Shown here is an 81-nucleotide RNA sequence from Camellia sinensis, a member of the family "Small nucleolar RNA Z155". The match comes from Rfam's covariance-model search (45 bits).
RNA sequence: UAUUGAUAUGAUGAUAAUCGAUUCGGAAAACAUGAUGUCGAGUAAAGUAAAUCUUUCCAGACUACAAUUAUCUGAUCAAUG
Numbered sequence: 001u002a003u004u005g006a007u008a009u010g011a012u013g014a015u016a017a018u019c020g021a022u023u024c025g026g027a028a029a030a031c032a033u034g035a036u037g038u039c040g041a042g043u044a045a046a047g048u049a050a051a052u053c054u055u056u057c058c059a060g061a062c063u064a065c066a067a068u069u070a071u072c073u074g075a076u077c078a079a080u081g
Stems, first nucleotide, its partner, number of pairs: 001081006
The literature on the family includes a 2003 paper in Nucleic Acids Res by Chen et al., "The high diversity of snoRNAs in plants: identification and comparative study of 120 snoRNA genes from Oryza sativa".